RNA: sul1 RNA
Organism: Aliirhizobium cellulosilyticum
Nucleotides: 055
Base pairs, nucleotide, nucleotide: 006023007022008021009020012018030050031049032048033047034046035045
Number, partner (000 for none) and nucleotide at each position: 001000c002000c003000u004000g005000g006023a007022u008021c009020c010000c011000a012018c013000g014000u015000c016000a017000c018012g019000u020009g021008g022007g023006u024000g025000g026000c027000u028000a029000u030050c031049c032048c033047a034046g035045c036000c037000g038000c039000c040000u041000g042000u043000c044000c045035g046034c047033u048032g049031g050030g051000c052000a053000a054000c055000u